[Rfam]
RNA sequence: AAUGCUGUGAUGAGGUGAAGCACCAUAUGGUGUUUUAAGGGUAGUGGAAGAGUGUUUAAUAGCUCUCUCCGUGAGCCUAUUUAAUUAACGACUUCUCCUUCCACUGAGCAUU
Numbered sequence: 001a002a003u004g005c006u007g008u009g010a011u012g013a014g015g016u017g018a019a020g021c022a023c024c025a026u027a028u029g030g031u032g033u034u035u036u037a038a039g040g041g042u043a044g045u046g047g048a049a050g051a052g053u054g055u056u057u058a059a060u061a062g063c064u065c066u067c068u069c070c071g072u073g074a075g076c077c078u079a080u081u082u083a084a085u086u087a088a089c090g091a092c093u094u095c096u097c098c099u100u101c102c103a104c105u106g107a108g109c110a111u112u
Stems, first nucleotide, its partner, number of pairs: 001112005
RNA: Small nucleolar RNA Z152/R70/R12/
Organism: Anisodus acutangulus